RNA: Small nucleolar RNA snR9
RNA sequence: GGGAAUAUAAUACUAAAUACUCUGUUAUAUAGAACUUUCUAUGCCUUUUCCUCUAUGGCUAUGGAAGCGUGGACAACGGAGACAAAUAGACGAACUAAUGAAUAUGGCUUUUGACAAAUCUUCUUCUCGGUGGGUAAGGACGAAACUUAUAUCCUGACCUGCCUGUCAUUAGUCCUUCAGACAUUU
Dot-bracket structure: ...................((((((........((((((((((((...........))).))))))).)).....)))))).................((((...((((...................(((((((.((((...........)))).))))))).......)))).)))).......